[Rfam]
RNA sequence: GAAGACCCUGUUGAGUUUGACCUUAAGUUGAGGCGUGAAGGGACUUGAGGGGUGUAGUCUAGGUGGGAGGCCUCCGGGCCGACAAUGAAAAACCACUACCCUCAUUGUUCCUUUACUUAGCUUGUUAAGGUGGGGCUAGGAGAAAUCCUUUUUAUCGUCCUAAGCGGCUCCGGGCCGCGACCACUUCAAGUGACCACCUCAAUCGGGAGGUUUGGCUGGGGCGGCACAUCUGUUAAAAAAUAACGCAGGUGUCCAAAGGGGAGCUCAGAGAGAACAGAAAUCUCUCGUAGAGCAAAAGGGCAAAUGCUCCCUUGAACAACCCCUUCAGUACGGGGGUUGGCCAUGAAAGUGUGGCCUAUCGAUCCUUUAGGUUCUUCCCAAGUGUUUUGGGCUAGAGGUGUCAGAAAAAUUACCACAGGGAUAACUGGCUUGUGGCAGCCAAGCGUUCAUAGCGACGUUGCUUUUUGAUCCUUCGAUGUCGGCUCUUCCUAUCAUAAUGAAGCAGAAUUCAUUAAGCGUUGGAUUGUUCACCCACUAAUAGGGAACGUGAGCUGGGUU
Numbered sequence: 001g002a003a004g005a006c007c008c009u010g011u012u013g014a015g016u017u018u019g020a021c022c023u024u025a026a027g028u029u030g031a032g033g034c035g036u037g038a039a040g041g042g043a044c045u046u047g048a049g050g051g052g053u054g055u056a057g058u059c060u061a062g063g064u065g066g067g068a069g070g071c072c073u074c075c076g077g078g079c080c081g082a083c084a085a086u087g088a089a090a091a092a093c094c095a096c097u098a099c100c101c102u103c104a105u106u107g108u109u110c111c112u113u114u115a116c117u118u119a120g121c122u123u124g125u126u127a128a129g130g131u132g133g134g135g136c137u138a139g140g141a142g143a144a145a146u147c148c149u150u151u152u153u154a155u156c157g158u159c160c161u162a163a164g165c166g167g168c169u170c171c172g173g174g175c176c177g178c179g180a181c182c183a184c185u186u187c188a189a190g191u192g193a194c195c196a197c198c199u200c201a202a203u204c205g206g207g208a209g210g211u212u213u214g215g216c217u218g219g220g221g222c223g224g225c226a227c228a229u230c231u232g233u234u235a236a237a238a239a240a241u242a243a244c245g246c247a248g249g250u251g252u253c254c255a256a257a258g259g260g261g262a263g264c265u266c267a268g269a270g271a272g273a274a275c276a277g278a279a280a281u282c283u284c285u286c287g288u289a290g291a292g293c294a295a296a297a298g299g300g301c302a303a304a305u306g307c308u309c310c311c312u313u314g315a316a317c318a319a320c321c322c323c324u325u326c327a328g329u330a331c332g333g334g335g336g337u338u339g340g341c342c343a344u345g346a347a348a349g350u351g352u353g354g355c356c357u358a359u360c361g362a363u364c365c366u367u368u369a370g371g372u373u374c375u376u377c378c379c380a381a382g383u384g385u386u387u388u389g390g391g392c393u394a395g396a397g398g399u400g401u402c403a404g405a406a407a408a409a410u411u412a413c414c415a416c417a418g419g420g421a422u423a424a425c426u427g428g429c430u431u432g433u434g435g436c437a438g439c440c441a442a443g444c445g446u447u448c449a450u451a452g453c454g455a456c457g458u459u460g461c462u463u464u465u466u467g468a469u470c471c472u473u474c475g476a477u478g479u480c481g482g483c484u485c486u487u488c489c490u491a492u493c494a495u496a497a498u499g500a501a502g503c504a505g506a507a508u509u510c511a512u513u514a515a516g517c518g519u520u521g522g523a524u525u526g527u528u529c530a531c532c533c534a535c536u537a538a539u540a541g542g543g544a545a546c547g548u549g550a551g552c553u554g555g556g557u558u
Base pairs, nucleotide, nucleotide: 007419008418009417010416012415013414014411015410016409017408018407020211021210022209023208027203028202029201030200031199032198033197035116036115037114038113039112040111041110042109043108044107046104047103048102049101050100051099062097063096064095065094066093069080070079120191121190122189123188124187130184131183132182133181138149139148140147141146164178165177166176167175168174214227215225216224217223228250229249230248231247232246233245253354254353259311260310261309262308263307264306265291266290268286269285270284271283272282273281292301293300317339318338319337320336321335322334323333324332342351343350344349365397366396367395368394369393370392377391378390379389380388428469430467432466434462435461436460437459438458439457443453444452480555481553482552483551484550485547486544487543488542489541490540493518496513497512498511499510500509501508520534521533522532524530
RNA: Eukaryotic large subunit ribosomal RNA, nucleotides 3005 to 3562
Organism: Dimargaris cristalligena